[Rfam]
Nucleotides: 080
Stems, first nucleotide, its partner, number of pairs: 002079006009072005017064005023058003027054001028052003
Number, partner (000 for none) and nucleotide at each position: 001000c002079c003078c004077g005076g006075u007074c008000c009072u010071c011070g012069g013068u014000a015000g016000u017064g018063g019062c020061u021060c022000u023058c024057a025056g026000g027054g028052c029051u030050c031000c032000c033000g034000c035000c036000c037000c038000g039000c040000u041000c042000a043000c044000g045000c046000g047000g048000g049000c050030g051029a052028g053000u054027c055000g056025c057024u058023g059000c060021g061020a062019g063018c064017c065000u066000c067000g068013a069012u070011c071010g072009a073000a074007g075006a076005c077004c078003g079002g080000c